Rfam assigns this 163-nucleotide RNA sequence from Juglans regia to the family "small nucleolar RNA snoR137".
Rfam links the family to the GO terms RNA processing and nucleolus.
[Rfam]
RNA sequence: GUUGCUUCAUAAUGGUGAACUCUCUCUUGUUUGAUAGUGGGAGAUGUUCAAGUUUCCGGAGCAUAAAGUAAUUAGGAAAUUAUUAAUCUCUUUAGCCAGUAUUAAACAGCGCAAUGUGUGCUUUUCUGCUAUCGCAUUGUGCUACCUGUCUCCUGGUACAUCU
Numbered sequence: 001g002u003u004g005c006u007u008c009a010u011a012a013u014g015g016u017g018a019a020c021u022c023u024c025u026c027u028u029g030u031u032u033g034a035u036a037g038u039g040g041g042a043g044a045u046g047u048u049c050a051a052g053u054u055u056c057c058g059g060a061g062c063a064u065a066a067a068g069u070a071a072u073u074a075g076g077a078a079a080u081u082a083u084u085a086a087u088c089u090c091u092u093u094a095g096c097c098a099g100u101a102u103u104a105a106a107c108a109g110c111g112c113a114a115u116g117u118g119u120g121c122u123u124u125u126c127u128g129c130u131a132u133c134g135c136a137u138u139g140u141g142c143u144a145c146c147u148g149u150c151u152c153c154u155g156g157u158a159c160a161u162c163u
Base pairs, nucleotide, nucleotide: 003063004062005061006060007059008058016050017049018048019047020046021044022043023042024041025040095157096156097155098154099153101151108143109142110141112139113138114137115136116135

Background: A search with the family's covariance model found it, with a score of 118 bits. By type it is an H/ACA-box small nucleolar RNA. The organism belongs to Juglans, within Eukaryota.